[Rfam]
RNA sequence: AGCCUCAUUCUGGAUUAGGAGGGGUACUGUUGACUGGUGUCCAGAAUUGGUCAGUGUGGCUAACAUUGAGACACACAUCAUGCUUCCAUCACAGUAAGCAUUUACAGUGGUGACAAGAGGCCUGUAACAUUU
Numbered sequence: 001a002g003c004c005u006c007a008u009u010c011u012g013g014a015u016u017a018g019g020a021g022g023g024g025u026a027c028u029g030u031u032g033a034c035u036g037g038u039g040u041c042c043a044g045a046a047u048u049g050g051u052c053a054g055u056g057u058g059g060c061u062a063a064c065a066u067u068g069a070g071a072c073a074c075a076c077a078u079c080a081u082g083c084u085u086c087c088a089u090c091a092c093a094g095u096a097a098g099c100a101u102u103u104a105c106a107g108u109g110g111u112g113a114c115a116a117g118a119g120g121c122c123u124g125u126a127a128c129a130u131u132u
Stems, first nucleotide, its partner, number of pairs: 002060003006056003022042006073125003087112006
The family of this 132-nucleotide RNA from Octodon degus is "Small nucleolar RNA SNORA1". From the family's description: ACA1 is a member of the H/ACA class of snoRNA that guide the sites of modification of uridines to pseudouridines. Taxonomically the source falls in Octodon (Eukaryota, Eumetazoa, Deuterostomia, Teleostomi). Its family is annotated with nucleolus and RNA processing in the Gene Ontology.